Background: A member of the RNA family "mir-3689 microRNA precursor family" from Homo sapiens, 72 nucleotides long. The source organism's lineage runs through Eukaryota, Eumetazoa, Dipnotetrapodomorpha, Haplorrhini and Homo.
RNA sequence: GGGGGGUCUGAUCCUGUGCUCCCUGGGAGGUGUGAUAUCAUGGUUCCUGGGAGGUGUGAUCCUGUGCUUCCU
Numbered sequence: 001g002g003g004g005g006g007u008c009u010g011a012u013c014c015u016g017u018g019c020u021c022c023c024u025g026g027g028a029g030g031u032g033u034g035a036u037a038u039c040a041u042g043g044u045u046c047c048u049g050g051g052a053g054g055u056g057u058g059a060u061c062c063u064g065u066g067c068u069u070c071c072u
Stems, first nucleotide, its partner, number of pairs: 001071005015058004020053001022051008031042004

Its family is annotated with miRNA-mediated post-transcriptional gene silencing and RISC complex in the Gene Ontology.